The record is a 354-nucleotide RNA from Candidatus Mesenet longicola, which matches "Bacterial RNase P class A" in Rfam. The organism belongs to Candidatus Mesenet, within Bacteria. The family's RNA type in Rfam is ribozyme. The match comes from Rfam's covariance-model search (277 bits). The base pairs follow the family's consensus structure, which is taken from published work.
RNA sequence: UAGGGCAAGUGUGUGGCUGCUGUUAUUUAUCAGCAAUGAUUGAGUAAUAGAGGAAAGUCCGGGCUCCAAGGAAAAAUGGUGAUGGAUAAUGUCCAUCGGAGGUAACUCUAGUUAUAGGGCUACAGAAAAUACCGCCUAUAUUUAGGUAAGGGUGAAAAGGGGUGGUAAGAGCACACCGCACUCAUGGCAACAUGUAGUGGCUGAAGUAACCAACAUCAGGAGCAAGGUUAAAUAAGGGUAAGUUUUAUGUUUUUCCUCAUAUUUACCCGGGUAGGCCGCUAAAGAUAAGUUGCAAAACUUAUCAUAGAUGAAUAGCCACAAAAACAGAACCCGGCUUAUAGCUUGUCCUAGGUG
Numbered sequence: 001u002a003g004g005g006c007a008a009g010u011g012u013g014u015g016g017c018u019g020c021u022g023u024u025a026u027u028u029a030u031c032a033g034c035a036a037u038g039a040u041u042g043a044g045u046a047a048u049a050g051a052g053g054a055a056a057g058u059c060c061g062g063g064c065u066c067c068a069a070g071g072a073a074a075a076a077u078g079g080u081g082a083u084g085g086a087u088a089a090u091g092u093c094c095a096u097c098g099g100a101g102g103u104a105a106c107u108c109u110a111g112u113u114a115u116a117g118g119g120c121u122a123c124a125g126a127a128a129a130u131a132c133c134g135c136c137u138a139u140a141u142u143u144a145g146g147u148a149a150g151g152g153u154g155a156a157a158a159g160g161g162g163u164g165g166u167a168a169g170a171g172c173a174c175a176c177c178g179c180a181c182u183c184a185u186g187g188c189a190a191c192a193u194g195u196a197g198u199g200g201c202u203g204a205a206g207u208a209a210c211c212a213a214c215a216u217c218a219g220g221a222g223c224a225a226g227g228u229u230a231a232a233u234a235a236g237g238g239u240a241a242g243u244u245u246u247a248u249g250u251u252u253u254u255c256c257u258c259a260u261a262u263u264u265a266c267c268c269g270g271g272u273a274g275g276c277c278g279c280u281a282a283a284g285a286u287a288a289g290u291u292g293c294a295a296a297a298c299u300u301a302u303c304a305u306a307g308a309u310g311a312a313u314a315g316c317c318a319c320a321a322a323a324a325c326a327g328a329a330c331c332c333g334g335c336u337u338a339u340a341g342c343u344u345g346u347c348c349u350a351g352g353u354g
Stems, first nucleotide, its partner, number of pairs: 001350010011339001012320007020050009055337003059334005064222004073254003077218005082096005097111001098109004112213002117211002119207003132151002134147005159177002162174003178201001179199004184193003226277004236268006246261004284303008